A member of the RNA family "ZMP/ZTP riboswitch aptamer (pfl RNA motif)" from Parvibium lacunae, 108 nucleotides long. Taxonomically the source falls in Parvibium (Bacteria, Pseudomonadati, Pseudomonadota, Alcaligenaceae).
RNA sequence: AUCCUGUUGCGUGACUGGCGAAAGGGCCAACUCUCCACGAGAGUCGGGCUGGAUGGAAGACCAUCAGGGAGCGCAGCGUCACAUAUGCCGUUCGCCUGGGCUGCCCCU
Numbered sequence: 001a002u003c004c005u006g007u008u009g010c011g012u013g014a015c016u017g018g019c020g021a022a023a024g025g026g027c028c029a030a031c032u033c034u035c036c037a038c039g040a041g042a043g044u045c046g047g048g049c050u051g052g053a054u055g056g057a058a059g060a061c062c063a064u065c066a067g068g069g070a071g072c073g074c075a076g077c078g079u080c081a082c083a084u085a086u087g088c089c090g091u092u093c094g095c096c097u098g099g100g101c102u103g104c105c106c107c108u
Stems, first nucleotide, its partner, number of pairs: 005078008015068002017096005053064004087101003